Notes:
Rfam assigns this 48-nucleotide sequence from Lachnospiraceae bacterium NK4A136 to the family "DUF3800-XI RNA". Rfam's curators put it in the seed alignment. Actinobacteria, Firmicutes, Proteobacteria, Spirochaetes (1 example). The organism belongs to Lachnospiraceae, within Bacteria.
RNA sequence: UGGCCUGGUCGAAAGACCCGGGGCCACCCAAAAGCGGGUAAGACACCC
Numbered sequence: 001u002g003g004c005c006u007g008g009u010c011g012a013a014a015g016a017c018c019c020g021g022g023g024c025c026a027c028c029c030a031a032a033a034g035c036g037g038g039u040a041a042g043a044c045a046c047c048c
Base pairs, nucleotide, nucleotide: 001026002025003024004023005022006021007018008017009016010015